[Rfam]
RNA sequence: AGUUGGCUUAGUUAGGAGGCGAACAGAAAACUUCGGAUCCAUUUAUUUUCGGAUCCGAGCUAAGGCCUUUUGAGUGGACUCUUGUGCUCACCGUCAAUUGUCCUCCAAGCAGCCUUGAACAUCU
Numbered sequence: 001a002g003u004u005g006g007c008u009u010a011g012u013u014a015g016g017a018g019g020c021g022a023a024c025a026g027a028a029a030a031c032u033u034c035g036g037a038u039c040c041a042u043u044u045a046u047u048u049u050c051g052g053a054u055c056c057g058a059g060c061u062a063a064g065g066c067c068u069u070u071u072g073a074g075u076g077g078a079c080u081c082u083u084g085u086g087c088u089c090a091c092c093g094u095c096a097a098u099u100g101u102c103c104u105c106c107a108a109g110c111a112g113c114c115u116u117g118a119a120c121a122u123c124u
Stems, first nucleotide, its partner, number of pairs: 004021002007018003034051004061117006069109004074105001076103004082097001
Rfam assigns this 124-nucleotide RNA sequence from Handroanthus impetiginosus to the family "Small nucleolar RNA U19". A search with the family's covariance model found it, with a score of 70 bits. Gene Ontology terms of the family: RNA processing and nucleolus. Pairs were carried over by alignment from the consensus structure, which was predicted with WAR. On this family, see Marker et al., Curr Biol 2002: "Experimental RNomics: identification of 140 candidates for small non-messenger RNAs in the plant Arabidopsis thaliana". By type it is an H/ACA-box small nucleolar RNA.